Background: Rfam assigns this 108-nucleotide RNA sequence from Canis lupus to the family "mir-8834 microRNA precursor family". The base pairs follow the family's consensus structure, which was predicted with RNAalifold.
RNA sequence: GGGAGAGACAACCGCAGGGGGCGGGGGGGCAGCUCUGUAGCCCUGGAGGCAGCCCCCGCAGUAACUACUGAGCUCUCCGUCUGCAGGGCCUGGAGGCUCCGGGGCGGG
Number, nucleotide and partner (000 for none) at each position: 001g000002g100003g099004a098005g097006a000007g000008a000009c092010a091011a000012c088013c087014g000015c086016a000017g000018g000019g000020g081021g080022c079023g078024g077025g076026g075027g000028g000029g000030c000031a074032g073033c072034u071035c070036u000037g068038u067039a066040g000041c000042c000043c061044u060045g059046g000047a000048g000049g000050c000051a000052g000053c000054c000055c000056c000057c000058g000059c045060a044061g043062u000063a000064a000065c000066u039067a038068c037069u000070g035071a034072g033073c032074u031075c026076u025077c024078c023079g022080u021081c020082u000083g000084c000085a000086g015087g013088g012089c000090c000091u010092g009093g000094a000095g000096g000097c005098u004099c003100c002101g000102g000103g000104g000105c000106g000107g000108g000